[Rfam]
RNA sequence: GGCAGCUCUCGGGUGACACACCCUGGAAUCAGGCUCCCUCCUGUCUGGUUCUGGGUGCGUCACCCGAGAACCGCA
Number, nucleotide and partner (000 for none) at each position: 001g000002g074003c073004a000005g071006c000007u069008c068009u067010c066011g065012g064013g063014u062015g061016a060017c059018a000019c057020a056021c055022c054023c053024u000025g052026g051027a050028a049029u048030c047031a046032g045033g044034c000035u000036c000037c000038c000039u000040c000041c000042u000043g000044u033045c032046u031047g030048g029049u028050u027051c026052u025053g023054g022055g021056u020057g019058c000059g017060u016061c015062a014063c013064c012065c011066g010067a009068g008069a007070a000071c005072c000073g003074c002075a000